The family of this 55-nucleotide sequence from Mastacembelus armatus is "Plastid-psbA-3 3UTR RNA". NCBI's taxonomy places the organism under Eukaryota, Euteleostomi, Actinopterygii, Euacanthomorphacea, Mastacembelus. On this family, see Richter et al., Plant Commun 2023: "Retrograde signaling in plants: A critical review focusing on the GUN pathway and beyond". Its Rfam clan is "Plastid-psbA 3UTR RNA clan". Rfam classes the family as a cis-regulatory element.
RNA sequence: AAAGAAAAAAUAAUGCUUCCUUCAUAAUGAAGGAAGCAUUAUUUUUUCUUUAUUU
Dot-bracket structure: ((((((((((((((...((((((.....))))))...))))))))))))))....
Numbered sequence: 001a002a003a004g005a006a007a008a009a010a011u012a013a014u015g016c017u018u019c020c021u022u023c024a025u026a027a028u029g030a031a032g033g034a035a036g037c038a039u040u041a042u043u044u045u046u047u048c049u050u051u052a053u054u055u
Stems, first nucleotide, its partner, number of pairs: 001051014018034006